[Rfam]
RNA sequence: UAAGUAUCAGGGAUCAGAGGGAGGGAACAAGCCUCCCAGAC
Numbered sequence: 001u002a003a004g005u006a007u008c009a010g011g012g013a014u015c016a017g018a019g020g021g022a023g024g025g026a027a028c029a030a031g032c033c034u035c036c037c038a039g040a041c
Stems, first nucleotide, its partner, number of pairs: 019037006

Record summary: Rfam assigns this 41-nucleotide RNA to the family "Ocean-VII RNA". It is annotated as a small RNA. Pairs were carried over by alignment from the consensus structure, which is taken from published work.